[Rfam]
RNA sequence: GUGCUAAGGUUGUAUAGUACAGCCUUUUUGUAGAAGUGAACCUUCUGCUAUAAACCAUCAAAUUGCGGGAACACCCUAAAGCAAUCAUAACCAAGUAAGAGUAGUAAUACAUCUUAUGGCUCAGGCAAUGACUCGAGGUAAGGUAAAAUCAUGAUUGAUAUAUAAAGUUCAAUGGGUUAUCCGCAGCCAAACACCGACUACUGUAAAUUAAGUAAGGUGUGCAGUUCAUCGACUAAAUGUUGGUUGGCUUUUAUAUUUUCUUGUCCUAAAACAAUAAGAAGUGGUACAAAGCUUAAGAUAUAGUCAGGCCUCAUCUCAAAGGGUGCA
Numbered sequence: 001g002u003g004c005u006a007a008g009g010u011u012g013u014a015u016a017g018u019a020c021a022g023c024c025u026u027u028u029u030g031u032a033g034a035a036g037u038g039a040a041c042c043u044u045c046u047g048c049u050a051u052a053a054a055c056c057a058u059c060a061a062a063u064u065g066c067g068g069g070a071a072c073a074c075c076c077u078a079a080a081g082c083a084a085u086c087a088u089a090a091c092c093a094a095g096u097a098a099g100a101g102u103a104g105u106a107a108u109a110c111a112u113c114u115u116a117u118g119g120c121u122c123a124g125g126c127a128a129u130g131a132c133u134c135g136a137g138g139u140a141a142g143g144u145a146a147a148a149u150c151a152u153g154a155u156u157g158a159u160a161u162a163u164a165a166a167g168u169u170c171a172a173u174g175g176g177u178u179a180u181c182c183g184c185a186g187c188c189a190a191a192c193a194c195c196g197a198c199u200a201c202u203g204u205a206a207a208u209u210a211a212g213u214a215a216g217g218u219g220u221g222c223a224g225u226u227c228a229u230c231g232a233c234u235a236a237a238u239g240u241u242g243g244u245u246g247g248c249u250u251u252u253a254u255a256u257u258u259u260c261u262u263g264u265c266c267u268a269a270a271a272c273a274a275u276a277a278g279a280a281g282u283g284g285u286a287c288a289a290a291g292c293u294u295a296a297g298a299u300a301u302a303g304u305c306a307g308g309c310c311u312c313a314u315c316u317c318a319a320a321g322g323g324u325g326c327a
Stems, first nucleotide, its partner, number of pairs: 006026008031040001053245005059239002064185006074176003186225002191220004229306001231305005247292005312325005
Dot-bracket structure: .....((((((((.....))))))))....(........)............(((((.((...((((((....(((.................................................................................................)))...))))))((...((((......................))))...))...[.[[[[[..)).))))).(((((....................................)))))........]]]]]].....(((((....)))))..
RNA: Group I catalytic intron
Organism: Cordyceps sp. RAO-2017